[Rfam]
RNA: TPP riboswitch aptamer (THI element)
RNA sequence: CGGGACUCAACGGGGUGUCCUUCAGGGGCUGAGACCAUACCCGCGGAACCUGAUCCUGAUCAUGCUGGCGAAGGAAUUGAGUGCACACCCUUA
Numbered sequence: 001c002g003g004g005a006c007u008c009a010a011c012g013g014g015g016u017g018u019c020c021u022u023c024a025g026g027g028g029c030u031g032a033g034a035c036c037a038u039a040c041c042c043g044c045g046g047a048a049c050c051u052g053a054u055c056c057u058g059a060u061c062a063u064g065c066u067g068g069c070g071a072a073g074g075a076a077u078u079g080a081g082u083g084c085a086c087a088c089c090c091u092u093a
Stems, first nucleotide, its partner, number of pairs: 006081005011043004016037001017029005049074003055068002058065001